[Rfam]
RNA sequence: UUUAGGCUGUGAAACGGGAGGUUGCGACACGCCCGGGCGCAUUGCCACGGACGAGCGGGUCGGAGAUUUCCGCGGAGCUAUGUCUAGUUUUAAAACAGACGAAGG
Numbered sequence: 001u002u003u004a005g006g007c008u009g010u011g012a013a014a015c016g017g018g019a020g021g022u023u024g025c026g027a028c029a030c031g032c033c034c035g036g037g038c039g040c041a042u043u044g045c046c047a048c049g050g051a052c053g054a055g056c057g058g059g060u061c062g063g064a065g066a067u068u069u070c071c072g073c074g075g076a077g078c079u080a081u082g083u084c085u086a087g088u089u090u091u092a093a094a095a096c097a098g099a100c101g102a103a104g105g
Base pairs, nucleotide, nucleotide: 015072016071018070019069020068021067025062026061027060028059081104083102084101087100088099089098090097